[Rfam]
RNA sequence: CCUGCCUCCGCCCCAGCAGCACACUGUGGUUUGUUCAGUGUUAUGGCCAAGUCCAAACCACACUGUGGUGUUAGAGCGAGGGUA
Numbered sequence: 001c002c003u004g005c006c007u008c009c010g011c012c013c014c015a016g017c018a019g020c021a022c023a024c025u026g027u028g029g030u031u032u033g034u035u036c037a038g039u040g041u042u043a044u045g046g047c048c049a050a051g052u053c054c055a056a057a058c059c060a061c062a063c064u065g066u067g068g069u070g071u072u073a074g075a076g077c078g079a080g081g082g083u084a
Stems, first nucleotide, its partner, number of pairs: 012082003015072004020067004025062009036051001038047002
A member of the RNA family "mir-497 microRNA precursor family" from Monodelphis domestica, 84 nucleotides long. The sequence is in the family's curated seed alignment.